[Rfam]
A member of the RNA family "TPP riboswitch aptamer (THI element)" from Pseudideonella sakaiensis, 103 nucleotides long. NCBI's taxonomy places the organism under Bacteria, Pseudomonadati, Betaproteobacteria, Sphaerotilaceae, Pseudideonella.

Nucleotides: 103
Base pairs, nucleotide, nucleotide: 008089009088010087011053012052013051014050016047017040018039019038020037021036022035023034024033025032059084060083061082062081065078066077067076068075
Number, partner (000 for none) and nucleotide at each position: 001000g002000g003000c004000a005000u006000u007000c008089g009088c010087u011053g012052g013051g014050g015000g016047u017040g018039u019038u020037g021036g022035g023034u024033c025032c026000g027000u028000c029000c030000g031000c032025g033024g034023g035022c036021c037020c038019g039018a040017c041000u042000g043000a044000g045000a046000c047016a048000g049000u050014c051013c052012c053011u054000u055000u056000g057000a058000a059084c060083c061082u062081g063000a064000u065078u066077g067076a068075g069000g070000u071000a072000a073000u074000c075068c076067u077066c078065g079000c080000g081062c082061a083060g084059g085000g086000a087010a088009g089008c090000u091000u092000g093000g094000u095000u096000g097000a098000c099000g100000c101000c102000g103000c